[Rfam]
RNA sequence: UACUGUGAUAGAGGCGCGUUUUUGAUGAGUAGCCCGCCGGAGGUUGUUCGGAACCGAAGAUGGCCGGCAAAAGGCAAAAACGCCGAAGGGAGCAGCGCCGGGCGGCUGCUCGCCUGGUUGCUUUGCAAACAGCGCAGCGACUGUCAUCAUGCGAUUGAUGGAGAGCUAUCCACUUU
Numbered sequence: 001u002a003c004u005g006u007g008a009u010a011g012a013g014g015c016g017c018g019u020u021u022u023u024g025a026u027g028a029g030u031a032g033c034c035c036g037c038c039g040g041a042g043g044u045u046g047u048u049c050g051g052a053a054c055c056g057a058a059g060a061u062g063g064c065c066g067g068c069a070a071a072a073g074g075c076a077a078a079a080a081c082g083c084c085g086a087a088g089g090g091a092g093c094a095g096c097g098c099c100g101g102g103c104g105g106c107u108g109c110u111c112g113c114c115u116g117g118u119u120g121c122u123u124u125g126c127a128a129a130c131a132g133c134g135c136a137g138c139g140a141c142u143g144u145c146a147u148c149a150u151g152c153g154a155u156u157g158a159u160g161g162a163g164a165g166c167u168a169u170c171c172a173c174u175u176u
Stems, first nucleotide, its partner, number of pairs: 007170005016083009032068003036064004087115003090111007116142007124134003144161006
Dot-bracket structure: ......(((((....(((((((((.......(((.((((.....................)))).)))......)))))))))...((((((((((........))))))).)))(((((((.(((.....))).))))))).((((((......))))))....)))))......